A member of the RNA family "Small nucleolar RNA Z43" from Phtheirospermum japonicum, 104 nucleotides long. The match comes from Rfam's covariance-model search (80 bits).
RNA sequence: GGACGAGGAUGAACACAAUUUGGUCUCGUUCGUCGUAAUGGUGUCUUUCAUGAUAUGAUACCUUGCCGACCAUACUGAUAUAUCACCACCCAUAAACUGAGUCC
Numbered sequence: 001g002g003a004c005g006a007g008g009a010u011g012a013a014c015a016c017a018a019u020u021u022g023g024u025c026u027c028g029u030u031c032g033u034c035g036u037a038a039u040g041g042u043g044u045c046u047u048u049c050a051u052g053a054u055a056u057g058a059u060a061c062c063u064u065g066c067c068g069a070c071c072a073u074a075c076u077g078a079u080a081u082a083u084c085a086c087c088a089c090c091c092a093u094a095a096a097c098u099g100a101g102u103c104c
Stems, first nucleotide, its partner, number of pairs: 001104004050064001052059001

Rfam classes the family as a C/D-box small nucleolar RNA. Its family is annotated with RNA processing and nucleolus in the Gene Ontology.